RNA sequence: GCAAAGGCUCUUUUAAGAGCCACCCAAAAGCUUCCUGAAAGCGCAA
Numbered sequence: 001g002c003a004a005a006g007g008c009u010c011u012u013u014u015a016a017g018a019g020c021c022a023c024c025c026a027a028a029a030g031c032u033u034c035c036u037g038a039a040a041g042c043g044c045a046a
Stems, first nucleotide, its partner, number of pairs: 006021006
Dot-bracket structure: .....((((((....)))))).........................